[Rfam]
RNA sequence: AAAAUUCGGAGAAGCGCACUCCUCCUCCCAGCGCCCUCCGAUGGACUGACAACACUCCUCCUCCCAGUUGUCAGUCACCCCUAAUGGCGCUCACCGGAUCCUCCCCGGUGGGCGUUUGGU
Number, nucleotide and partner (000 for none) at each position: 001a000002a000003a000004a000005u000006u000007c040008g039009g038010a000011g036012a000013a000014g034015c033016g032017c031018a000019c000020u000021c000022c000023u000024c000025c000026u000027c000028c000029c000030a000031g017032c016033g015034c014035c000036c011037u000038c009039c008040g007041a000042u000043g000044g076045a075046c074047u073048g072049a071050c070051a069052a068053c067054a000055c000056u000057c000058c000059u000060c000061c000062u000063c000064c000065c000066a000067g053068u052069u051070g050071u049072c048073a047074g046075u045076c044077a000078c000079c000080c000081c000082u000083a000084a000085u000086g000087g115088c114089g113090c112091u111092c110093a109094c108095c107096g106097g105098a000099u000100c000101c000102u000103c000104c000105c097106c096107g095108g094109u093110g092111g091112g090113c089114g088115u087116u000117u000118g000119g000120u000